The family of this 373-nucleotide RNA from Henningerozyma blattae is "Small nucleolar RNA snR37". It scores 277 bits against the family's covariance model. The family is grouped with related families in Rfam's "SNORA64 clan". The family's consensus secondary structure was predicted with WAR.

[Rfam]
RNA sequence: AUCGUCAGUAGUGGUUAGUACUAUCUCAAGAUAAUAUUAAUUACCAUUAUAUUAUAGAAACCUAAUGUUUCAUUUGUUUGUGUUCUUACUGUCGAUGAGGGUUUUCCUUCGGGAUUGGUCUUAUUUGACAAGUUAAUACUGGGACUCUGAACAUAUGAUUCUCAUACAAUAACCCAUAGCUGAAUGAAUUUUGACACAUCCUAAACAAAUGUGGCACAAUUUUCAUUUCGUUUCCGGUUUCUUAGAUAAAAACUAUUAUGAGGGAGGCCCUUAUAGGCAAAGACCUAGAGGGAAAUGCAUGUUUCCAGAGAGUUAUAUAAUGUAACUUGAGAGUUUGGGAUCUACAAUGCUUCUUCUUCAUGUUAGGACAAUU
Numbered sequence: 001a002u003c004g005u006c007a008g009u010a011g012u013g014g015u016u017a018g019u020a021c022u023a024u025c026u027c028a029a030g031a032u033a034a035u036a037u038u039a040a041u042u043a044c045c046a047u048u049a050u051a052u053u054a055u056a057g058a059a060a061c062c063u064a065a066u067g068u069u070u071c072a073u074u075u076g077u078u079u080g081u082g083u084u085c086u087u088a089c090u091g092u093c094g095a096u097g098a099g100g101g102u103u104u105u106c107c108u109u110c111g112g113g114a115u116u117g118g119u120c121u122u123a124u125u126u127g128a129c130a131a132g133u134u135a136a137u138a139c140u141g142g143g144a145c146u147c148u149g150a151a152c153a154u155a156u157g158a159u160u161c162u163c164a165u166a167c168a169a170u171a172a173c174c175c176a177u178a179g180c181u182g183a184a185u186g187a188a189u190u191u192u193g194a195c196a197c198a199u200c201c202u203a204a205a206c207a208a209a210u211g212u213g214g215c216a217c218a219a220u221u222u223u224c225a226u227u228u229c230g231u232u233u234c235c236g237g238u239u240u241c242u243u244a245g246a247u248a249a250a251a252a253c254u255a256u257u258a259u260g261a262g263g264g265a266g267g268c269c270c271u272u273a274u275a276g277g278c279a280a281a282g283a284c285c286u287a288g289a290g291g292g293a294a295a296u297g298c299a300u301g302u303u304u305c306c307a308g309a310g311a312g313u314u315a316u317a318u319a320a321u322g323u324a325a326c327u328u329g330a331g332a333g334u335u336u337g338g339g340a341u342c343u344a345c346a347a348u349g350c351u352u353c354u355u356c357u358u359c360a361u362g363u364u365a366g367g368a369c370a371a372u373u
Stems, first nucleotide, its partner, number of pairs: 008050006014041007022033004056242007067161001070158004075153005080147001082145005090130006098122005105114003131140003182228007191219003195213005253366003257362001259360008269292004274287004294352002298349003304339006310328007